[Rfam]
RNA sequence: AUGGGUGACCGGGCCCCUCUGGCAGGUUUAUGCGGCAAUCCUGCGAUGUCGGCACCUGAA
Numbered sequence: 001a002u003g004g005g006u007g008a009c010c011g012g013g014c015c016c017c018u019c020u021g022g023c024a025g026g027u028u029u030a031u032g033c034g035g036c037a038a039u040c041c042u043g044c045g046a047u048g049u050c051g052g053c054a055c056c057u058g059a060a
Stems, first nucleotide, its partner, number of pairs: 006054002009052004022044005028038002
Dot-bracket structure: .....((.((((.........(((((.((.......)).)))))....))))))......
Shown here is a 60-nucleotide sequence from Pseudorhodobacter sp. MZDSW-24AT, a member of the family "terC RNA". NCBI's taxonomy places the organism under Bacteria, Pseudomonadati, Alphaproteobacteria, Paracoccaceae, Pseudorhodobacter. A search with the family's covariance model found it, with a score of 49 bits. The family's RNA type in Rfam is cis-regulatory element.